RNA: Bacterial RNase P class A
RNA sequence: UGAGUCGGCCAGGUGAUCGCGGCGCAAGCUGAGGAAAGUCCGGACUCCACAGGGCACGGUGGUGGGUAACACCCACCCGGGGCGACCCGCGGGACAGUGCCACAGAAAACAAACCGCCCGCAAGGGUAAGGGUGAAACGGUGGUGUAAGAGACCACCGCGUCCCAGGUGACUGGGAUGGCAGGGUAAACCCCACCGGGAGCAAAACCAAGAAGGGCUACGGCCCGCACCAACGUUUGAGCGCUGCUCGCGCGAGUUGGUGGGUAGGUUGCACGAGGCUGACGGCAACGUCGGUCCAAGAUGGAUGGUCACAGAACCUCUUUGAGGGGAACAGAAUCCGGCUUAUCGGCCGGCUCAUCUA
Numbered sequence: 001u002g003a004g005u006c007g008g009c010c011a012g013g014u015g016a017u018c019g020c021g022g023c024g025c026a027a028g029c030u031g032a033g034g035a036a037a038g039u040c041c042g043g044a045c046u047c048c049a050c051a052g053g054g055c056a057c058g059g060u061g062g063u064g065g066g067u068a069a070c071a072c073c074c075a076c077c078c079g080g081g082g083c084g085a086c087c088c089g090c091g092g093g094a095c096a097g098u099g100c101c102a103c104a105g106a107a108a109a110c111a112a113a114c115c116g117c118c119c120g121c122a123a124g125g126g127u128a129a130g131g132g133u134g135a136a137a138c139g140g141u142g143g144u145g146u147a148a149g150a151g152a153c154c155a156c157c158g159c160g161u162c163c164c165a166g167g168u169g170a171c172u173g174g175g176a177u178g179g180c181a182g183g184g185u186a187a188a189c190c191c192c193a194c195c196g197g198g199a200g201c202a203a204a205a206c207c208a209a210g211a212a213g214g215g216c217u218a219c220g221g222c223c224c225g226c227a228c229c230a231a232c233g234u235u236u237g238a239g240c241g242c243u244g245c246u247c248g249c250g251c252g253a254g255u256u257g258g259u260g261g262g263u264a265g266g267u268u269g270c271a272c273g274a275g276g277c278u279g280a281c282g283g284c285a286a287c288g289u290c291g292g293u294c295c296a297a298g299a300u301g302g303a304u305g306g307u308c309a310c311a312g313a314a315c316c317u318c319u320u321u322g323a324g325g326g327g328a329a330c331a332g333a334a335u336c337c338g339g340c341u342u343a344u345c346g347g348c349c350g351g352c353u354c355a356u357c358u359a
Stems, first nucleotide, its partner, number of pairs: 001355010011344001013310006020031004036342003040339005045200004052247004057196005062076005077091001078089004092191002097189002099185003114131002116127004139157006158180001159178008204268004227259006239251004275294008